This 100-nucleotide sequence from Evansella caseinilytica belongs to the Rfam family "Purine riboswitch aptamer".
Lineage of the source: Bacteria > Bacillati > Bacillota > Bacilli > Evansella.
From the family's description: Riboswitches are metabolite binding domains within certain messenger RNAs that serve as precision sensors for their corresponding targets.
RNA sequence: GUAAGCUGCAACAUUCGCAUUCGUAUAACCUCAAUAAUAUGGUUUGGGGGUUUCUACUAGGAACCGUAAAUUCCUGGCUACGAAGCUGUGCACGGCUGUG
Numbered sequence: 001g002u003a004a005g006c007u008g009c010a011a012c013a014u015u016c017g018c019a020u021u022c023g024u025a026u027a028a029c030c031u032c033a034a035u036a037a038u039a040u041g042g043u044u045u046g047g048g049g050g051u052u053u054c055u056a057c058u059a060g061g062a063a064c065c066g067u068a069a070a071u072u073c074c075u076g077g078c079u080a081c082g083a084a085g086c087u088g089u090g091c092a093c094g095g096c097u098g099u100g
Stems, first nucleotide, its partner, number of pairs: 020084006029049006058076006